Shown here is a 99-nucleotide RNA from Anaerotignum neopropionicum, a member of the family "azaaromatic riboswitch aptamer (yjdF RNA)". Lineage of the source: Bacteria > Bacillati > Clostridia > Anaerotignaceae > Anaerotignum.
[Rfam]
RNA sequence: AACAGCGAAGAUAAAAACACAGAUCCGGUUGGUAGUCCGGACGCAGCGGUAGCUGUCAGUAACCUGCCUCCUUGGUUGUCCGUUCUUUGUUAUGAAUGA
Dot-bracket structure: ...((((((((..........(.(((((........))))))(((((....))))).........(((.....))).......))))))))........
Numbered sequence: 001a002a003c004a005g006c007g008a009a010g011a012u013a014a015a016a017a018c019a020c021a022g023a024u025c026c027g028g029u030u031g032g033u034a035g036u037c038c039g040g041a042c043g044c045a046g047c048g049g050u051a052g053c054u055g056u057c058a059g060u061a062a063c064c065u066g067c068c069u070c071c072u073u074g075g076u077u078g079u080c081c082g083u084u085c086u087u088u089g090u091u092a093u094g095a096a097u098g099a
Stems, first nucleotide, its partner, number of pairs: 004091008022042001024041005043056005066076003